SAM riboswitch aptamer (S box leader): a 105-nucleotide RNA sequence from Pricia antarctica.
Its family is annotated with regulation of gene expression in the Gene Ontology.
NCBI's taxonomy places the organism under Bacteria, Bacteroidota, Flavobacteriia, Flavobacteriales, Pricia.
It scores 78 bits against the family's covariance model.

RNA sequence: ACGUUAUCAAGAAAGGCGGAGGGAUUAGACCCUAUGAAGCCUUAGCAACCCUUUACUUAAAGAAGGUGCUACGUUCUAUCCCGCCAAAGGCGUGACAGAUAACUU
Numbered sequence: 001a002c003g004u005u006a007u008c009a010a011g012a013a014a015g016g017c018g019g020a021g022g023g024a025u026u027a028g029a030c031c032c033u034a035u036g037a038a039g040c041c042u043u044a045g046c047a048a049c050c051c052u053u054u055a056c057u058u059a060a061a062g063a064a065g066g067u068g069c070u071a072c073g074u075u076c077u078a079u080c081c082c083g084c085c086a087a088a089g090g091c092g093u094g095a096c097a098g099a100u101a102a103c104u105u
Base pairs, nucleotide, nucleotide: 001105003103004102005101006100007099008098013043014042015041016040017039021032022031023030028077029075044070045069046068047067049066050065051062052061053060054059074097080094082092083091084090085089